RNA: Streptomyces-metH RNA
Organism: Streptomyces sp. NBRC 110611
RNA sequence: CUGUCCAGGGCGUGAAACGGGGAACAUGUGUACCGGACCGGCCCGCUACGCUGGCCAGGUGCGCCCUCUCCCGGAGGGCGUGAAGCCGACAGCCGUCGCAACCAGGGAGCACCUCCAUG
Numbered sequence: 001c002u003g004u005c006c007a008g009g010g011c012g013u014g015a016a017a018c019g020g021g022g023a024a025c026a027u028g029u030g031u032a033c034c035g036g037a038c039c040g041g042c043c044c045g046c047u048a049c050g051c052u053g054g055c056c057a058g059g060u061g062c063g064c065c066c067u068c069u070c071c072c073g074g075a076g077g078g079c080g081u082g083a084a085g086c087c088g089a090c091a092g093c094c095g096u097c098g099c100a101a102c103c104a105g106g107g108a109g110c111a112c113c114u115c116c117a118u119g
Stems, first nucleotide, its partner, number of pairs: 060082004065077004085099002088097003